[Rfam]
RNA: Alphaproteobacteria transfer-messenger RNA
Organism: Methylopila jiangsuensis
RNA sequence: CCCCUUUCGGUCCGCGCGCGAACCGCCUAUAUUCGUCGUCGCCGGGGCGACCCGGCUAUGGCGAUAAACGUUUGCCGCAAUAAACCCUUCGGACCCGGGGGCAGCACCCGGCGCCUCCACCGAAGCCCGUCCGAGCGGCGGGUUUCGGCGGGGGCGAAACAGGAUCGACGGGGGCGUAAAGGGCGUGCUUUCGCUCGGCAUGGUUCCGCCGUCAUCGGGCCUUUUUAUAGUUGCCAACGACAACUAUGCUCCGGUUGCUCAGGCCGCGUGAGCGGUUUGAAAGACCAAAUUAAAGUCCUAGAGGGUUAGCUCUUUUAGGCGGGGUUCGGAGGUACCUGGCAACAGAAACCUCCACU
Numbered sequence: 001c002c003c004c005u006u007u008c009g010g011u012c013c014g015c016g017c018g019c020g021a022a023c024c025g026c027c028u029a030u031a032u033u034c035g036u037c038g039u040c041g042c043c044g045g046g047g048c049g050a051c052c053c054g055g056c057u058a059u060g061g062c063g064a065u066a067a068a069c070g071u072u073u074g075c076c077g078c079a080a081u082a083a084a085c086c087c088u089u090c091g092g093a094c095c096c097g098g099g100g101g102c103a104g105c106a107c108c109c110g111g112c113g114c115c116u117c118c119a120c121c122g123a124a125g126c127c128c129g130u131c132c133g134a135g136c137g138g139c140g141g142g143u144u145u146c147g148g149c150g151g152g153g154g155c156g157a158a159a160c161a162g163g164a165u166c167g168a169c170g171g172g173g174g175c176g177u178a179a180a181g182g183g184c185g186u187g188c189u190u191u192c193g194c195u196c197g198g199c200a201u202g203g204u205u206c207c208g209c210c211g212u213c214a215u216c217g218g219g220c221c222u223u224u225u226u227a228u229a230g231u232u233g234c235c236a237a238c239g240a241c242a243a244c245u246a247u248g249c250u251c252c253g254g255u256u257g258c259u260c261a262g263g264c265c266g267c268g269u270g271a272g273c274g275g276u277u278u279g280a281a282a283g284a285c286c287a288a289a290u291u292a293a294a295g296u297c298c299u300a301g302a303g304g305g306u307u308a309g310c311u312c313u314u315u316u317a318g319g320c321g322g323g324g325u326u327c328g329g330a331g332g333u334a335c336c337u338g339g340c341a342a343c344a345g346a347a348a349c350c351u352c353c354a355c356u
Stems, first nucleotide, its partner, number of pairs: 041056005060195005070188002073185004085174003089171003095111005112156007196211004202221002205219003322337004328353006